[Rfam]
RNA: Fluoride riboswitch aptamer (crcB RNA motif)
RNA sequence: GUUAGCUGUGGGGAUGGCGUCCCCCAGGGUAGAGCCCGAACCGCCCUCGAGGCUGAUGACGCCUACUUCUUC
Numbered sequence: 001g002u003u004a005g006c007u008g009u010g011g012g013g014a015u016g017g018c019g020u021c022c023c024c025c026a027g028g029g030u031a032g033a034g035c036c037c038g039a040a041c042c043g044c045c046c047u048c049g050a051g052g053c054u055g056a057u058g059a060c061g062c063c064u065a066c067u068u069c070u071u072c
Base pairs, nucleotide, nucleotide: 010025011024012023013022016063017062018061019060020059021058043053044052045051